[Rfam]
RNA sequence: AUUUAUCGCUAGGGGUGCCAUGCGCUGAGAGGAUUAUUCCGACCCUUAGAACCUGUAGGUUAAUACCUUCGUAGGAAAGCGGAUUCUGUUAAUA
Numbered sequence: 001a002u003u004u005a006u007c008g009c010u011a012g013g014g015g016u017g018c019c020a021u022g023c024g025c026u027g028a029g030a031g032g033a034u035u036a037u038u039c040c041g042a043c044c045c046u047u048a049g050a051a052c053c054u055g056u057a058g059g060u061u062a063a064u065a066c067c068u069u070c071g072u073a074g075g076a077a078a079g080c081g082g083a084u085u086c087u088g089u090u091a092a093u094a
Stems, first nucleotide, its partner, number of pairs: 006082005011046004017025002032039002052075004057068003
RNA: TPP riboswitch aptamer (THI element)
Organism: Alkaliphilus oremlandii